[Rfam]
RNA sequence: AAUGGCGUCAAUGAUGACCAGACUUUUUUCCCCAGCAGAUCGACGCUGUUGACCUUUUUUUUUCUCCAGAAAUUAAGCCAAAGUGUCUGAGCCAUU
Numbered sequence: 001a002a003u004g005g006c007g008u009c010a011a012u013g014a015u016g017a018c019c020a021g022a023c024u025u026u027u028u029u030c031c032c033c034a035g036c037a038g039a040u041c042g043a044c045g046c047u048g049u050u051g052a053c054c055u056u057u058u059u060u061u062u063u064c065u066c067c068a069g070a071a072a073u074u075a076a077g078c079c080a081a082a083g084u085g086u087c088u089g090a091g092c093c094a095u096u
Stems, first nucleotide, its partner, number of pairs: 001096006008089001